[Rfam]
RNA: msiK RNA
Organism: Pseudactinotalea sp. HY158
RNA sequence: UUCUGGCACCUUCACAACGGAUCGUCCGGCACGUACCUGCCGGUGAAGGGACAUACC
Dot-bracket structure: ........((((((...........((((((......))))))))))))........